The record is a 153-nucleotide RNA sequence from Desulforhabdus amnigena, which matches "FMN riboswitch aptamer (RFN element)" in Rfam.
The organism belongs to Desulforhabdus, within Bacteria.

[Rfam]
RNA sequence: ACUUAUUCUCAGGGCGGGGUGGAAUUCCCCACCGGCGGUAUCCCGGCUUUACGCCGGGGAGCCCGCGAGCGCUCCCUUCGAUUCGAAGGGAGGUCAGCAGAUCCGGUGUAAAGCCGGAGCCGACGGUAAGAGUCCGGAUGGAAGAGGAUAAGG
Dot-bracket structure: ..((((((((......(((.......))).[[((((((......................[[))))..((..........................))...(((((.......)))))]])).(((.....]]))).......))))))))..